This 142-nucleotide sequence from Oncorhynchus kisutch belongs to the Rfam family "Small nucleolar RNA SNORA47". Rfam links the family to the GO terms nucleolus and RNA processing. The base pairs follow the family's consensus structure, which was predicted with WAR. The source organism's lineage runs through Eukaryota, Actinopteri, Neopterygii, Clupeocephala and Oncorhynchus. By type it is an H/ACA-box small nucleolar RNA. The literature on the family includes a 2001 paper in EMBO J by Huttenhofer et al., "RNomics: an experimental approach that identifies 201 candidates for novel, small, non-messenger RNAs in mouse".

[Rfam]
RNA sequence: GGGAGGAUUGAGAAGGUGUAGCAGCGUCACACUGUGCUGUUAUUACUGGUUAAUAACCUCCUACAUGAAAAUCAGGUCGACGCAGCAAACUGGCUUCAUGACACCUUCAUUACAGCCAAUGUUGCGUCUGUGCACAAAACUA
Numbered sequence: 001g002g003g004a005g006g007a008u009u010g011a012g013a014a015g016g017u018g019u020a021g022c023a024g025c026g027u028c029a030c031a032c033u034g035u036g037c038u039g040u041u042a043u044u045a046c047u048g049g050u051u052a053a054u055a056a057c058c059u060c061c062u063a064c065a066u067g068a069a070a071a072u073c074a075g076g077u078c079g080a081c082g083c084a085g086c087a088a089a090c091u092g093g094c095u096u097c098a099u100g101a102c103a104c105c106u107u108c109a110u111u112a113c114a115g116c117c118a119a120u121g122u123u124g125c126g127u128c129u130g131u132g133c134a135c136a137a138a139a140c141u142a
Base pairs, nucleotide, nucleotide: 002061003060004059005058006057015047016046017045018044019042020041021040022039023038024037025036082133083132086130087129089127090126